Notes: The family of this 117-nucleotide RNA is "RT-4 RNA". The family's RNA type in Rfam is small RNA.
[Rfam]
RNA sequence: UACACCGCUGACCGUUGAAAUACGGCUUACUCGCCAUAAUUGGAAAGAUGAGUGGAAAUAGGUCCGAUACAGGGCACCCGGUAAAGCGGUCGCACCUGCCGGGUGCAGGAGAUAGAA
Numbered sequence: 001u002a003c004a005c006c007g008c009u010g011a012c013c014g015u016u017g018a019a020a021u022a023c024g025g026c027u028u029a030c031u032c033g034c035c036a037u038a039a040u041u042g043g044a045a046a047g048a049u050g051a052g053u054g055g056a057a058a059u060a061g062g063u064c065c066g067a068u069a070c071a072g073g074g075c076a077c078c079c080g081g082u083a084a085a086g087c088g089g090u091c092g093c094a095c096c097u098g099c100c101g102g103g104u105g106c107a108g109g110a111g112a113u114a115g116a117a
Stems, first nucleotide, its partner, number of pairs: 003054003010027001012025004031048002034043003063110003074106010086093002